The family of this 71-nucleotide RNA sequence from Brugia timori is "SL1 RNA". Gene Ontology term of the family: mRNA trans splicing, via spliceosome. A reference for the family is Dassanayake et al. (2001), "Trans-spliced leader RNA, 5S-rRNA genes and novel variant orphan spliced-leader of the lymphatic filarial nematode Wuchereria bancrofti, and a sensitive polymerase chain reaction based detection assay", Gene. The organism belongs to Brugia, within Eukaryota. This family represents the SL1 RNA. SL1 is commonly located in the spacer region between 5S-rRNA genes where it is involved in trans-splicing. Trans-splicing is a form of RNA processing. The acquisition of a spliced leader from a SL RNA is a intra-molecular reaction which precisely joins exons derived from separately transcribed RNAs. This mechanism of mRNA maturation has been shown to occur in a number of lower eukaryotes and is commonplace in nematodes. The family has 28 seed sequences and 1,095 matches in Rfam 15.1. The family is grouped with related families in Rfam's "SL clan".

[Rfam]
RNA sequence: GGUUUAAUUACCCAAGUUCGAGGUAAUUGAAUGUUUCGGCCCAGAGUUUAGGCUACUGUGGCUUGAAGUAA
Number, nucleotide and partner (000 for none) at each position: 001g000002g000003u031004u030005u029006a028007a027008u026009u025010a024011c023012c022013c000014a000015a000016g000017u000018u000019c000020g000021a000022g012023g011024u010025a009026a008027u007028u006029g005030a004031a003032u000033g000034u068035u067036u066037c065038g000039g062040c061041c060042c000043a000044g000045a000046g000047u000048u000049u000050a000051g000052g000053c000054u000055a000056c000057u000058g000059u000060g041061g040062c039063u000064u000065g037066a036067a035068g034069u000070a000071a000